[Rfam]
RNA: mir-277 microRNA precursor family
RNA sequence: CAGGGCCUGGAGCCGUGCCAGAGGCGCAUUUACACGUAAUUUCGCAUCUCUGUAAAUGCACUAUCUGGUACGACAUUCCGGCCCAA
Numbered sequence: 001c002a003g004g005g006c007c008u009g010g011a012g013c014c015g016u017g018c019c020a021g022a023g024g025c026g027c028a029u030u031u032a033c034a035c036g037u038a039a040u041u042u043c044g045c046a047u048c049u050c051u052g053u054a055a056a057u058g059c060a061c062u063a064u065c066u067g068g069u070a071c072g073a074c075a076u077u078c079c080g081g082c083c084c085a086a
Stems, first nucleotide, its partner, number of pairs: 008080004014072009024061001026059009